[Rfam]
Overview
Shown here is a 163-nucleotide RNA sequence from Channa argus, a member of the family "U1 spliceosomal RNA". Its Rfam clan is "U1 clan". NCBI's taxonomy places the organism under Eukaryota, Metazoa, Teleostomi, Ctenosquamata, Channa. The family's RNA type in Rfam is spliceosomal small nuclear RNA. On this family, see Zwieb, Nucleic Acids Res 1997: "The uRNA database".
RNA sequence: AUACUUACCUGGCAGGGGAGAUACCAUGAUCAAGAAGGUGGUUCACCCAGGGCGAGGCUCAGCCAUUGCACUCUGGUUGUACUGACCCCUGCGAAUUCCCCAAAUGUGGGAAUCUCUACUGCAUAAUUUGUGGUAGUGGGAACUGCGUUCGCGCUCUCCCCUG
Numbered sequence: 001a002u003a004c005u006u007a008c009c010u011g012g013c014a015g016g017g018g019a020g021a022u023a024c025c026a027u028g029a030u031c032a033a034g035a036a037g038g039u040g041g042u043u044c045a046c047c048c049a050g051g052g053c054g055a056g057g058c059u060c061a062g063c064c065a066u067u068g069c070a071c072u073c074u075g076g077u078u079g080u081a082c083u084g085a086c087c088c089c090u091g092c093g094a095a096u097u098c099c100c101c102a103a104a105u106g107u108g109g110g111a112a113u114c115u116c117u118a119c120u121g122c123a124u125a126a127u128u129u130g131u132g133g134u135a136g137u138g139g140g141a142a143c144u145g146c147g148u149u150c151g152c153g154c155u156c157u158c159c160c161c162u163g
Stems, first nucleotide, its partner, number of pairs: 012122004016048003020044002023042005049090004054086001056083002060079005093116002095113003099109002138160003142157001145154003